[Rfam]
Nucleotides: 132
Stems, first nucleotide, its partner, number of pairs: 002057004019052002022049001025046003083128002093115006
Number, partner (000 for none) and nucleotide at each position: 001000c002057u003056g004055c005054a006000g007000c008000c009000a010000a011000u012000u013000a014000a015000g016000u017000c018000a019052a020051c021000c022049g023000u024000g025046c026045u027044c028000a029000u030000u031000u032000a033000u034000u035000u036000c037000c038000u039000c040000a041000u042000g043000g044027g045026g046025g047000c048000c049022c050000a051020g052019u053000g054005u055004g056003c057002a058000a059000u060000g061000g062000c063000u064000g065000c066000a067000a068000a069000c070000a071000g072000c073000a074000g075000c076000c077000u078000c079000c080000u081000u082000g083128g084127u085000a086000g087000c088000g089000u090000a091000u092000g093115c094114a095113g096112c097111c098110u099000g100000u101000u102000g103000c104000u105000u106000a107000u108000a109000u110098g111097g112096g113095u114094u115093g116000u117000u118000c119000u120000a121000a122000g123000a124000g125000a126000g127084a128083c129000a130000g131000u132000c

Description: Rfam assigns this 132-nucleotide RNA sequence from Propithecus coquereli to the family "Small nucleolar RNA SNORA70". snoRNA U70 seems to be exclusive to mammals and is a member of the H/ACA class of snoRNA which contain H (ANANNA) and ACA box motifs. H/ACA box snoRNAs are involved in the conversion of uridines to pseudouridines (5-ribosyluracil) a constituent of structural RNAs (transfer, ribosomal, small nuclear, and small nucleolar). It is annotated as an H/ACA-box small nucleolar RNA. Gene Ontology terms of the family: RNA processing and nucleolus. It scores 104 bits against the family's covariance model.